[Rfam]
RNA sequence: GUGCCAGUGUAGCUCAGUGGUUACUUCUGAAUGUUCUCAGUUCCAAUCUCUCAGUCCGCGGACUGAGAAGUUCAAACCCAUGGGUGCUGUCUGAUUUUUUU
Numbered sequence: 001g002u003g004c005c006a007g008u009g010u011a012g013c014u015c016a017g018u019g020g021u022u023a024c025u026u027c028u029g030a031a032u033g034u035u036c037u038c039a040g041u042u043c044c045a046a047u048c049u050c051u052c053a054g055u056c057c058g059c060g061g062a063c064u065g066a067g068a069a070g071u072u073c074a075a076a077c078c079c080a081u082g083g084g085u086g087c088u089g090u091c092u093g094a095u096u097u098u099u100u101u
Base pairs, nucleotide, nucleotide: 003095005093006092007091012085013084014083015082017081018080019079020078025067026066027065029063
A member of the RNA family "Vault RNA" from Coregonus sp. 'balchen', 101 nucleotides long. Rfam's curators write: This family of RNAs are found as part of the enigmatic vault ribonucleoprotein complex. The family's RNA type in Rfam is non-coding RNA gene. The base pairs follow the family's consensus structure, which is taken from published work.